Shown here is a 104-nucleotide sequence from Prunus persica, a member of the family "MIR2275 microRNA precursor family". Rfam links the family to the GO terms RISC complex and miRNA-mediated post-transcriptional gene silencing.
[Rfam]
RNA sequence: AAGCCGUAUGUGAGAAUUGGAGGGAGCUAAACAAAUAAAUCAACCCCUCAUUAAUGGGAAAUUUCUAAUUUGUUUAGUUUCCUCCAAUAUCUUAUCUCCGGCAU
Dot-bracket structure: ...(((.(..((((.((((((.((((((((.(((((...............................))))).)))))))).))))))..))))..).)))...